Shown here is a 71-nucleotide RNA sequence from Mandrillus leucophaeus, a member of the family "Small nucleolar RNA SNORD56". The family's RNA type in Rfam is C/D-box small nucleolar RNA. Lineage of the source: Eukaryota > Eumetazoa > Bilateria > Teleostomi > Mandrillus. On this family, see Galardi et al., Mol Cell Biol 2002: "Purified box C/D snoRNPs are able to reproduce site-specific 2'-O-methylation of target RNA in vitro". Rfam 15.1 lists 796 matches to the family in 432 species.
[Rfam]
RNA sequence: CUACAAUCAUGGCAAUAUUUUUUGUCAACAGCAUCUCACCUAGUAAAUGUUGAUACUUUGGGUCUGAGUGA
Numbered sequence: 001c002u003a004c005a006a007u008c009a010u011g012g013c014a015a016u017a018u019u020u021u022u023u024g025u026c027a028a029c030a031g032c033a034u035c036u037c038a039c040c041u042a043g044u045a046a047a048u049g050u051u052g053a054u055a056c057u058u059u060g061g062g063u064c065u066g067a068g069u070g071a
Stems, first nucleotide, its partner, number of pairs: 002070003009025003